Shown here is a 117-nucleotide RNA sequence from Nonomuraea cavernae, a member of the family "Actinobacteria sRNA Ms_IGR-7". The pairing is the family consensus, mapped onto this sequence. Rfam 15.1 lists 463 matches to the family in 194 species. Rfam classes the family as a small RNA. The match comes from Rfam's covariance-model search (52 bits). Lineage of the source: Bacteria > Actinomycetota > Actinomycetes > Streptosporangiales > Nonomuraea.
[Rfam]
RNA sequence: ACGAGGUGUCCUUUGACUGCGGCGGUUGGAAGCCUAGAGAACUCCCAUCCUCCCAGUUCGGAGGGCACCUCACCUCAUUUCACGAACCUCAUGCCACAUUCAGGCCGGUGGAUUCAG
Numbered sequence: 001a002c003g004a005g006g007u008g009u010c011c012u013u014u015g016a017c018u019g020c021g022g023c024g025g026u027u028g029g030a031a032g033c034c035u036a037g038a039g040a041a042c043u044c045c046c047a048u049c050c051u052c053c054c055a056g057u058u059c060g061g062a063g064g065g066c067a068c069c070u071c072a073c074c075u076c077a078u079u080u081c082a083c084g085a086a087c088c089u090c091a092u093g094c095c096a097c098a099u100u101c102a103g104g105c106c107g108g109u110g111g112a113u114u115c116a117g
Stems, first nucleotide, its partner, number of pairs: 003071014018056001021053002024050002027047001029045001031043002098113005